RNA: Fungal signal recognition particle RNA
RNA sequence: UGACUGUAACGGUCAUAAGCCCAAGACGAGCCCACACUCCCAAUUCUUCCACUCAAAAAUCUCAAUCUAACGAUUGAAGCUACCAACAGUGCCCAGUCCGAACACCGCGGUGACAGUCCACUCGUGCGGGAAACCCACGAUGCUGGUGUUGUCUUGAGCAAUGAAGAUGAUUUCUUGAGGGAGGUUUCACUCUGCAGAGAGCUCUUCACCUUAGUGUGGCGGUAUUGAAUUACAUUUGUUGUGUGGUUUGGAGAGGGGAUUUGGGUUGGGUCUCUACUUUUGCAGUUUUAUUUUUGGUCUCUUUGGCCUUUU
Numbered sequence: 001u002g003a004c005u006g007u008a009a010c011g012g013u014c015a016u017a018a019g020c021c022c023a024a025g026a027c028g029a030g031c032c033c034a035c036a037c038u039c040c041c042a043a044u045u046c047u048u049c050c051a052c053u054c055a056a057a058a059a060u061c062u063c064a065a066u067c068u069a070a071c072g073a074u075u076g077a078a079g080c081u082a083c084c085a086a087c088a089g090u091g092c093c094c095a096g097u098c099c100g101a102a103c104a105c106c107g108c109g110g111u112g113a114c115a116g117u118c119c120a121c122u123c124g125u126g127c128g129g130g131a132a133a134c135c136c137a138c139g140a141u142g143c144u145g146g147u148g149u150u151g152u153c154u155u156g157a158g159c160a161a162u163g164a165a166g167a168u169g170a171u172u173u174c175u176u177g178a179g180g181g182a183g184g185u186u187u188c189a190c191u192c193u194g195c196a197g198a199g200a201g202c203u204c205u206u207c208a209c210c211u212u213a214g215u216g217u218g219g220c221g222g223u224a225u226u227g228a229a230u231u232a233c234a235u236u237u238g239u240u241g242u243g244u245g246g247u248u249u250g251g252a253g254a255g256g257g258g259a260u261u262u263g264g265g266u267u268g269g270g271u272c273u274c275u276a277c278u279u280u281u282g283c284a285g286u287u288u289u290a291u292u293u294u295u296g297g298u299c300u301c302u303u304u305g306g307c308c309u310u311u312u
Stems, first nucleotide, its partner, number of pairs: 001015004017310003021306004028301003032297003038269002048257003052253003056249002062077006081245003084241005089235003094227004098222003102217004107212001109210002112153001114151004118146003122140005128135002154158001162208006172201005181192003